Shown here is a 135-nucleotide RNA sequence from Cochlearius cochlearius, a member of the family "Small nucleolar RNA SNORA14".
Gene Ontology terms of the family: nucleolus and RNA processing.
From the family's description: ACA14 is a member of the H/ACA class of snoRNA that guide the sites of modification of uridines to pseudouridines.
The family has 18 seed sequences and 848 matches in Rfam 15.1.
The match comes from Rfam's covariance-model search (85 bits).

RNA sequence: CUGCAUUCUUAACCCUCCUGGCAGCUCUCUCGGUAGCCCCCAGGAUAAGAAUGGAUGCCAGAGAAAACUGCUGACUGAUCCAAAGCGUAGAGCCCUUCUCCCGUGGCUCUUCGUUAUUUCACGUCUUCAACAUUU
Number, nucleotide and partner (000 for none) at each position: 001c000002u000003g058004c057005a056006u055007u000008c000009u049010u048011a000012a000013c000014c000015c000016u045017c044018c043019u042020g041021g040022c000023a000024g037025c036026u000027c000028u000029c000030u000031c000032g000033g000034u000035a000036g025037c024038c000039c000040c021041c020042a019043g018044g017045a016046u000047a000048a010049g009050a000051a000052u000053g000054g000055a006056u005057g004058c003059c000060a000061g000062a135063g134064a133065a000066a000067a000068c000069u129070g128071c000072u000073g125074a124075c000076u000077g000078a000079u000080c000081c000082a000083a000084a115085g114086c113087g112088u000089a110090g109091a000092g107093c106094c000095c000096u000097u000098c103099u000100c000101c000102c000103g098104u000105g000106g093107c092108u000109c090110u089111u000112c087113g086114u085115u084116a000117u000118u000119u000120c000121a000122c000123g000124u074125c073126u000127u000128c070129a069130a000131c000132a000133u064134u063135u062